[Rfam]
RNA sequence: AUUCACAAAGGUGAUGGCGUUCCACCUUUCCCAACCGCCCCGCUGGGGCUGAUGACGCCUGGUAUACC
Numbered sequence: 001a002u003u004c005a006c007a008a009a010g011g012u013g014a015u016g017g018c019g020u021u022c023c024a025c026c027u028u029u030c031c032c033a034a035c036c037g038c039c040c041c042g043c044u045g046g047g048g049c050u051g052a053u054g055a056c057g058c059c060u061g062g063u064a065u066a067c068c
Stems, first nucleotide, its partner, number of pairs: 010026004016059006037049004

The record is a 68-nucleotide RNA from Enterobacteriaceae bacterium strain FGI 57, which matches "Fluoride riboswitch aptamer (crcB RNA motif)" in Rfam. The literature on the family includes a 2012 paper in Nature by Ren et al., "Fluoride ion encapsulation by Mg2+ ions and phosphates in a fluoride riboswitch". The organism belongs to Enterobacteriaceae, within Bacteria. The match comes from Rfam's covariance-model search (52 bits).